[Rfam]
RNA: serC leader
Organism: Gillisella ampelina
RNA sequence: CGGCGGGACACCUCUCCCCAACGAGAGGCCAUAUACCUGGAAGGGUAGUUUGC
Numbered sequence: 001c002g003g004c005g006g007g008a009c010a011c012c013u014c015u016c017c018c019c020a021a022c023g024a025g026a027g028g029c030c031a032u033a034u035a036c037c038u039g040g041a042a043g044g045g046u047a048g049u050u051u052g053c
Base pairs, nucleotide, nucleotide: 011028012027013026014025015024016023034047035046036045037044038043